[Rfam]
This 48-nucleotide RNA from Colidextribacter sp. OB.20 belongs to the Rfam family "ssnA RNA".
RNA sequence: AACUGAAAGGCUGAAAAGGAGUGCUUCGCGCACGGGCUGGUGUUCAUC
Numbered sequence: 001a002a003c004u005g006a007a008a009g010g011c012u013g014a015a016a017a018g019g020a021g022u023g024c025u026u027c028g029c030g031c032a033c034g035g036g037c038u039g040g041u042g043u044u045c046a047u048c
Stems, first nucleotide, its partner, number of pairs: 009038004021033004